[Rfam]
RNA: Flavo-1 RNA
RNA sequence: AAUUAGCUACCAAGUAUGCUGCGUGAGCGAUAGAAACGGCAUCCUUUUUAUGCUUUUUCUGCAUAAAAAGAUAUAGUGGAAAGCGCGGUUUUUG
Dot-bracket structure: ..........................(((.(....((...(((...(((((((.......)))))))..)))...))....).)))........
Numbered sequence: 001a002a003u004u005a006g007c008u009a010c011c012a013a014g015u016a017u018g019c020u021g022c023g024u025g026a027g028c029g030a031u032a033g034a035a036a037c038g039g040c041a042u043c044c045u046u047u048u049u050a051u052g053c054u055u056u057u058u059c060u061g062c063a064u065a066a067a068a069a070g071a072u073a074u075a076g077u078g079g080a081a082a083g084c085g086c087g088g089u090u091u092u093u094g
Stems, first nucleotide, its partner, number of pairs: 027086003031082001036077002041072003047067007